[Rfam]
RNA sequence: GAACGAGUAAAUCUCAUCCUAAUCUGGUUGACACAACACAAGGAAGUGCUACCGAUUUGGCUUGGGAUUGACUUGUGG
Numbered sequence: 001g002a003a004c005g006a007g008u009a010a011a012u013c014u015c016a017u018c019c020u021a022a023u024c025u026g027g028u029u030g031a032c033a034c035a036a037c038a039c040a041a042g043g044a045a046g047u048g049c050u051a052c053c054g055a056u057u058u059g060g061c062u063u064g065g066g067a068u069u070g071a072c073u074u075g076u077g078g
Stems, first nucleotide, its partner, number of pairs: 003076006010069007018060002021057004026053003030049001
A member of the RNA family "mir-259 microRNA precursor family" from Caenorhabditis remanei, 78 nucleotides long.